[Rfam]
RNA sequence: GUCAAGGGGCAGCGAUCGCCCCACGAGGCCACGGCCGAAGAAUCGCGUCCUGUGAAACCGUUAGAACGGAGGACGCGCUGCCAUG
Numbered sequence: 001g002u003c004a005a006g007g008g009g010c011a012g013c014g015a016u017c018g019c020c021c022c023a024c025g026a027g028g029c030c031a032c033g034g035c036c037g038a039a040g041a042a043u044c045g046c047g048u049c050c051u052g053u054g055a056a057a058c059c060g061u062u063a064g065a066a067c068g069g070a071g072g073a074c075g076c077g078c079u080g081c082c083a084u085g
Stems, first nucleotide, its partner, number of pairs: 006022005045076006
RNA: chrB-a RNA